[Rfam]
A member of the RNA family "TPP riboswitch aptamer (THI element)" from Acetobacterium bakii, 108 nucleotides long. The family's consensus secondary structure is taken from published work. NCBI's taxonomy places the organism under Bacteria, Bacillati, Eubacteriales, Eubacteriaceae, Acetobacterium.
RNA sequence: UCUUUACUUAAGGGGAGUUAGUGUUAACUGGCUGAGAGGAAACUUGGAUGUUUCGACCCAAAACCUGAUUUGGAUAAUGCCAACGGAGGGAAAUAUAAAAUAAUCCGU
Numbered sequence: 001u002c003u004u005u006a007c008u009u010a011a012g013g014g015g016a017g018u019u020a021g022u023g024u025u026a027a028c029u030g031g032c033u034g035a036g037a038g039g040a041a042a043c044u045u046g047g048a049u050g051u052u053u054c055g056a057c058c059c060a061a062a063a064c065c066u067g068a069u070u071u072g073g074a075u076a077a078u079g080c081c082a083a084c085g086g087a088g089g090g091a092a093a094u095a096u097a098a099a100a101u102a103a104u105c106c107g108u
Stems, first nucleotide, its partner, number of pairs: 006096001009093001012059003017032005039054005064089003070083004